Background: Bacillaceae-1 RNA: a 68-nucleotide sequence from Solibacillus sp. R5-41.

[Rfam]
RNA sequence: AAUUGAGGAGGUUAGCCUAAAUUCUUCGCGUCUAUGUGACAACGGCUAACUGACCUGCAUAGUGCUGA
Numbered sequence: 001a002a003u004u005g006a007g008g009a010g011g012u013u014a015g016c017c018u019a020a021a022u023u024c025u026u027c028g029c030g031u032c033u034a035u036g037u038g039a040c041a042a043c044g045g046c047u048a049a050c051u052g053a054c055c056u057g058c059a060u061a062g063u064g065c066u067g068a
Base pairs, nucleotide, nucleotide: 011050012049013048014047015046016045017044026039027038028037029036055067057065058064